[Rfam]
RNA: Purine riboswitch aptamer
Organism: Paratissierella segnis
RNA sequence: AAAACUAAAUAAUAUAAGGCUCAUAUAAGUCCCAUAAUAUGGUUGGGAUGUCUCUACGAAAUGACCGUAAAUCAUUUAUCUAUGAGUGAAAGUGUACCUAGG
Numbered sequence: 001a002a003a004a005c006u007a008a009a010u011a012a013u014a015u016a017a018g019g020c021u022c023a024u025a026u027a028a029g030u031c032c033c034a035u036a037a038u039a040u041g042g043u044u045g046g047g048a049u050g051u052c053u054c055u056a057c058g059a060a061a062u063g064a065c066c067g068u069a070a071a072u073c074a075u076u077u078a079u080c081u082a083u084g085a086g087u088g089a090a091a092g093u094g095u096a097c098c099u100a101g102g
Base pairs, nucleotide, nucleotide: 019087020086021085022084023083024082025081029049030048031047032046033045034044059077060076061075062074063073064072